[Rfam]
RNA sequence: UUGCCCUUUUUGGCACUAGCACAUUUUUGCUUUGUUUCCCGUUGCUUGAGCAAUCAUGUGUAGUGCCAAUAUGGGACA
Numbered sequence: 001u002u003g004c005c006c007u008u009u010u011u012g013g014c015a016c017u018a019g020c021a022c023a024u025u026u027u028u029g030c031u032u033u034g035u036u037u038c039c040c041g042u043u044g045c046u047u048g049a050g051c052a053a054u055c056a057u058g059u060g061u062a063g064u065g066c067c068a069a070u071a072u073g074g075g076a077c078a
Base pairs, nucleotide, nucleotide: 004075005074006073008071010069011068012067013066014065015064016063017062019061020060021059022058023057024056027053028052029051030050031049032048